[Rfam]
About this RNA: The record is a 102-nucleotide RNA from Firmicutes bacterium CAG:240, which matches "Purine riboswitch aptamer" in Rfam.
RNA sequence: CGCGCAAAACAGAAUAUUUUCGAUAUAUAGCAAAUGAUAUGGAUUUGAAGUCUCUACCCGGACGCCGUAAAUGACCGGACUAUCGAAGUUUUUAUACAGAGG
Numbered sequence: 001c002g003c004g005c006a007a008a009a010c011a012g013a014a015u016a017u018u019u020u021c022g023a024u025a026u027a028u029a030g031c032a033a034a035u036g037a038u039a040u041g042g043a044u045u046u047g048a049a050g051u052c053u054c055u056a057c058c059c060g061g062a063c064g065c066c067g068u069a070a071a072u073g074a075c076c077g078g079a080c081u082a083u084c085g086a087a088g089u090u091u092u093u094a095u096a097c098a099g100a101g102g
Stems, first nucleotide, its partner, number of pairs: 018088008031047005058078004063073002
A search with the family's covariance model found it, with a score of 70 bits. The family's consensus secondary structure is taken from published work. The organism belongs to Bacillota, within Bacteria.